[Rfam]
RNA sequence: GGUUUAUAAAGAAGCGGCGAGAGAUCAGGCUCCGCGACCCGCUGGCAACCCUCCGCAGAUGCGAAGAAGGUGCCAAUUCCUGCCCCGGUAAAUAUCCCGGGAAAUAUAAAUU
Numbered sequence: 001g002g003u004u005u006a007u008a009a010a011g012a013a014g015c016g017g018c019g020a021g022a023g024a025u026c027a028g029g030c031u032c033c034g035c036g037a038c039c040c041g042c043u044g045g046c047a048a049c050c051c052u053c054c055g056c057a058g059a060u061g062c063g064a065a066g067a068a069g070g071u072g073c074c075a076a077u078u079c080c081u082g083c084c085c086c087g088g089u090a091a092a093u094a095u096c097c098c099g100g101g102a103a104a105u106a107u108a109a110a111u112u
Base pairs, nucleotide, nucleotide: 001112002111003110004109005108006107007106008105013043014042015041016040017039021032022031023030026082027081028080029079044074045073046072047071049070050069051066052065054063078104083101084100085099087097088096

This 112-nucleotide sequence from Mucilaginibacter auburnensis belongs to the Rfam family "SAM riboswitch aptamer (S box leader)".
Pairs were carried over by alignment from the consensus structure, which is taken from published work.
It scores 75 bits against the family's covariance model.
Rfam's curators write: The SAM riboswitch is found upstream of a number of genes which code for proteins involved in methionine or cysteine biosynthesis in Gram-positive bacteria. The SAM riboswitch acts at the level of transcription termination control. The predicted structure consists of a complex stem-loop region followed by a single stem loop terminator region. An alternative and mutually exclusive form involves bases in the 3' segment of helix 1 with those in the 5' region of helix 5 to form a structure termed the anti-terminator form. This entry represents the conserved core of the complex structure involving helices 1-4.